[Rfam]
RNA sequence: GGCAUCCGAGGCAGAGAUGCCUCGGCCUCAUUGAAGC
Numbered sequence: 001g002g003c004a005u006c007c008g009a010g011g012c013a014g015a016g017a018u019g020c021c022u023c024g025g026c027c028u029c030a031u032u033g034a035a036g037c
Stems, first nucleotide, its partner, number of pairs: 006025007
RNA: CRISPR RNA direct repeat element